[Rfam]
RNA: Small nucleolar RNA SNORD17
Organism: Jacana jacana
RNA sequence: GUGAGGUGAUGACAGAGUUUAUCCAUUCUCUGAGUGCGGUGGCGCUGCCCUCCUGCAGCACCCUGAUUCCUGUUCUAGGGUCUGGGUGCUGUGCAGCCUCCAGAGACCCUCUGUUCUCCCAGUGUCCUACUGGGAGCCACUGUGGUGUCUGGCUGGCUGCCUGCAGGAGUGAAGUGGUGCCGGGAGGGUUGGAGCCCCUCUUUGGAUGGGGCUCCAUCCCCACCUAGAUGAGGGAUGAUGUCUGAUCAC
Numbered sequence: 001g002u003g004a005g006g007u008g009a010u011g012a013c014a015g016a017g018u019u020u021a022u023c024c025a026u027u028c029u030c031u032g033a034g035u036g037c038g039g040u041g042g043c044g045c046u047g048c049c050c051u052c053c054u055g056c057a058g059c060a061c062c063c064u065g066a067u068u069c070c071u072g073u074u075c076u077a078g079g080g081u082c083u084g085g086g087u088g089c090u091g092u093g094c095a096g097c098c099u100c101c102a103g104a105g106a107c108c109c110u111c112u113g114u115u116c117u118c119c120c121a122g123u124g125u126c127c128u129a130c131u132g133g134g135a136g137c138c139a140c141u142g143u144g145g146u147g148u149c150u151g152g153c154u155g156g157c158u159g160c161c162u163g164c165a166g167g168a169g170u171g172a173a174g175u176g177g178u179g180c181c182g183g184g185a186g187g188g189u190u191g192g193a194g195c196c197c198c199u200c201u202u203u204g205g206a207u208g209g210g211g212c213u214c215c216a217u218c219c220c221c222a223c224c225u226a227g228a229u230g231a232g233g234g235a236u237g238a239u240g241u242c243u244g245a246u247c248a249c
Stems, first nucleotide, its partner, number of pairs: 010248003017241002020238001023234002026232003030227002034223002040183001042181001043179006050171001051168007059088005065082001068080004093160006106146002112139002116136009186220003190216004195211004